[Rfam]
RNA sequence: UGGCACCCAGUGUGGCUUUGGAUACAAGGGAACAAAGUGAGAAAGAGGGUGCAUGAAAAGGGCCGAUGAUUAAAGUGAGACAAAAUCCCUCUGAUCACCGCAGGAGACUGCUGUAUCACCGUUGGGGGUAAGGUGUGCGCCCGAAAUGGGACAAGAAUUAAGUCAACAUCAACUCUAUGUAGGACAGUUGAAGGAGACUUUAAAGACACAGGGAGUAAAGGUUAAACGUGGUGACUUGUUUAAGUUUUUUGACUUUAUAAAAGAUACUUGCCCUU
Numbered sequence: 001u002g003g004c005a006c007c008c009a010g011u012g013u014g015g016c017u018u019u020g021g022a023u024a025c026a027a028g029g030g031a032a033c034a035a036a037g038u039g040a041g042a043a044a045g046a047g048g049g050u051g052c053a054u055g056a057a058a059a060g061g062g063c064c065g066a067u068g069a070u071u072a073a074a075g076u077g078a079g080a081c082a083a084a085a086u087c088c089c090u091c092u093g094a095u096c097a098c099c100g101c102a103g104g105a106g107a108c109u110g111c112u113g114u115a116u117c118a119c120c121g122u123u124g125g126g127g128g129u130a131a132g133g134u135g136u137g138c139g140c141c142c143g144a145a146a147u148g149g150g151a152c153a154a155g156a157a158u159u160a161a162g163u164c165a166a167c168a169u170c171a172a173c174u175c176u177a178u179g180u181a182g183g184a185c186a187g188u189u190g191a192a193g194g195a196g197a198c199u200u201u202a203a204a205g206a207c208a209c210a211g212g213g214a215g216u217a218a219a220g221g222u223u224a225a226a227c228g229u230g231g232u233g234a235c236u237u238g239u240u241u242a243a244g245u246u247u248u249u250u251g252a253c254u255u256u257a258u259a260a261a262a263g264a265u266a267c268u269u270g271c272c273c274u275u
Base pairs, nucleotide, nucleotide: 006030007029008028012025013024014023038046087128088127090126091125096121100114101113102112103111136153137152140150141149142148143147159202160201161200162198163197164196209251210250211249212248213247214246215245216244219237220236221235222234223233224232260275261274263272265270
Mason-Pfizer monkey virus packaging signal: a 275-nucleotide RNA sequence from Chlorocebus sabaeus. Gene Ontology term of the family: viral genome packaging. Rfam's curators write: This family represents a group of sequences that are related to the Mason-Pfizer monkey virus (MPMV) packaging signal. NCBI's taxonomy places the organism under Eukaryota, Opisthokonta, Dipnotetrapodomorpha, Boreoeutheria, Chlorocebus. A search with the family's covariance model found it, with a score of 210 bits.